[Rfam]
RNA sequence: GGUAAGGUCCGGGCCCCUCUGGCCGGAUCGGCGCCGCCCUGGCGCCGCCCCGGCGAUGUCGGACCUCCAUC
Number, nucleotide and partner (000 for none) at each position: 001g000002g000003u000004a000005a000006g065007g064008u063009c062010c061011g060012g059013g000014c000015c000016c000017c000018u000019c000020u000021g000022g054023c053024c052025g051026g050027a000028u000029c000030g049031g048032c047033g000034c000035c000036g000037c000038c000039c000040u000041g000042g000043c000044g000045c000046c000047g032048c031049c030050c026051c025052g024053g023054c022055g000056a000057u000058g000059u012060c011061g010062g009063a008064c007065c006066u000067c000068c000069a000070u000071c000
Rfam assigns this 71-nucleotide RNA from Muricoccus nepalensis to the family "terC RNA". The organism belongs to Muricoccus, within Bacteria.